[Rfam]
RNA sequence: AGCAAAAUGAUGAGCUAACUUAUCUGAGCUAUUAGUGCUGAAGCAUUUAACGUAAUUGCCUUAAAAGUUUUCCGAUUGCU
Number, nucleotide and partner (000 for none) at each position: 001a080002g079003c078004a077005a076006a000007a000008u000009g000010a000011u000012g000013a000014g000015c000016u000017a000018a000019c000020u000021u000022a000023u000024c000025u000026g000027a000028g000029c000030u000031a000032u000033u000034a000035g000036u000037g000038c000039u000040g000041a000042a000043g000044c000045a000046u000047u000048u000049a000050a000051c000052g000053u000054a000055a000056u000057u000058g000059c000060c000061u000062u000063a000064a000065a000066a000067g000068u000069u000070u000071u000072c000073c000074g000075a000076u005077u004078g003079c002080u001
Shown here is an 80-nucleotide sequence from Nelumbo nucifera, a member of the family "Small nucleolar RNA R160". The literature on the family includes a 2003 paper in Nucleic Acids Res by Chen et al., "The high diversity of snoRNAs in plants: identification and comparative study of 120 snoRNA genes from Oryza sativa". Lineage of the source: Eukaryota > Streptophyta > Euphyllophyta > Nelumbonaceae > Nelumbo. The base pairs follow the family's consensus structure. Rfam classes the family as a C/D-box small nucleolar RNA. snoR160 is a C/D box small nucleolar RNA, which acts as a methylation guide for 25S ribosomal RNA in plants. snoR160 has been alternatively named snoZ270 in rice. Gene Ontology terms of the family: RNA processing and nucleolus.